[Rfam]
RNA sequence: AUACAAAAACAUAAAAACAUCGACUGUUUUAUAUUUUGGCUAGUCGUUCACGUAAACUUUGGUCGGUUUGGGGUGGACGACUUCUUUUUUAU
Numbered sequence: 001a002u003a004c005a006a007a008a009a010c011a012u013a014a015a016a017a018c019a020u021c022g023a024c025u026g027u028u029u030u031a032u033a034u035u036u037u038g039g040c041u042a043g044u045c046g047u048u049c050a051c052g053u054a055a056a057c058u059u060u061g062g063u064c065g066g067u068u069u070g071g072g073g074u075g076g077a078c079g080a081c082u083u084c085u086u087u088u089u090u091a092u
Stems, first nucleotide, its partner, number of pairs: 005036003014030006043081009
Shown here is a 92-nucleotide RNA from Moraxella sp. VT-16-12, a member of the family "ctRNA".
Rolling circle replication plasmids contain a number of mechanisms to maintain a low copy number. One of these methods is to transcribe a small RNA called ctRNA (for counter-transcribed RNA) than is transcribed on the opposite strand to RepB the replication initiation protein. ctRNA binds to the mRNA of repB and causes translational inhibition.